[Rfam]
RNA sequence: CCUCCGCCCUCCCCGCACAGGGGGCGGAUCGAGGCUCCGGCGCUCUCCACCCCCACUGCGCCGAAGCCUCACCCACGGCCGCGGGACCGCACACCCCGGCCGUCGCGACCCCGGGUUGCGGUGCCGGACGGGUCGAGGGUCCCGUCGCGGCGC
Numbered sequence: 001c002c003u004c005c006g007c008c009c010u011c012c013c014c015g016c017a018c019a020g021g022g023g024g025c026g027g028a029u030c031g032a033g034g035c036u037c038c039g040g041c042g043c044u045c046u047c048c049a050c051c052c053c054c055a056c057u058g059c060g061c062c063g064a065a066g067c068c069u070c071a072c073c074c075a076c077g078g079c080c081g082c083g084g085g086a087c088c089g090c091a092c093a094c095c096c097c098g099g100c101c102g103u104c105g106c107g108a109c110c111c112c113g114g115g116u117u118g119c120g121g122u123g124c125c126g127g128a129c130g131g132g133u134c135g136a137g138g139g140u141c142c143c144g145u146c147g148c149g150g151c152g153c
Stems, first nucleotide, its partner, number of pairs: 003028004008024005031070005038063003042059002044055001075103007083096003108122003112118002127146006
RNA: Streptomyces sRNA scr5239